[Rfam]
RNA sequence: AAGCAACACUUUAUGGCAGAUGAUCAAAACUGUCUGACACGUUUUGAGCUUUCUCUGCCAGCAAAGUCUAACCUAUUGCAGUGCUCUCUCUUCUAUGAAACAACCCAUUACAGAGACUCAGU
Numbered sequence: 001a002a003g004c005a006a007c008a009c010u011u012u013a014u015g016g017c018a019g020a021u022g023a024u025c026a027a028a029a030c031u032g033u034c035u036g037a038c039a040c041g042u043u044u045u046g047a048g049c050u051u052u053c054u055c056u057g058c059c060a061g062c063a064a065a066g067u068c069u070a071a072c073c074u075a076u077u078g079c080a081g082u083g084c085u086c087u088c089u090c091u092u093c094u095a096u097g098a099a100a101c102a103a104c105c106c107a108u109u110a111c112a113g114a115g116a117c118u119c120a121g122u
Stems, first nucleotide, its partner, number of pairs: 009048003012041001014039002017036006065118005074112001076110001081105001087100001089098002
Shown here is a 122-nucleotide RNA from Phyllostomus discolor, a member of the family "Small nucleolar RNA SNORA28". It is annotated as an H/ACA-box small nucleolar RNA. Its Rfam clan is "SNORA28 clan". The match comes from Rfam's covariance-model search (76 bits). ACA28 is a member of the H/ACA class of snoRNA that guide the sites of modification of uridines to pseudouridines. The organism belongs to Phyllostomus, within Eukaryota.